[Rfam]
RNA sequence: GCCCUGCGCACGGGCGCUUGGUUCGGGCUGUGGUGCGACGCAGAUAAGCGGUGAGUGCUGCGCAUGAAGAAAACCGCCGCAGAU
Numbered sequence: 001g002c003c004c005u006g007c008g009c010a011c012g013g014g015c016g017c018u019u020g021g022u023u024c025g026g027g028c029u030g031u032g033g034u035g036c037g038a039c040g041c042a043g044a045u046a047a048g049c050g051g052u053g054a055g056u057g058c059u060g061c062g063c064a065u066g067a068a069g070a071a072a073a074c075c076g077c078c079g080c081a082g083a084u
Base pairs, nucleotide, nucleotide: 001015002014003013004012007037008036009035010034011033016028017027018026039062040061041060042059043058048080049079050078051077052076
Rfam assigns this 84-nucleotide RNA from Loktanella salsilacus to the family "Proteo-phage-1 RNA". It is annotated as a small RNA.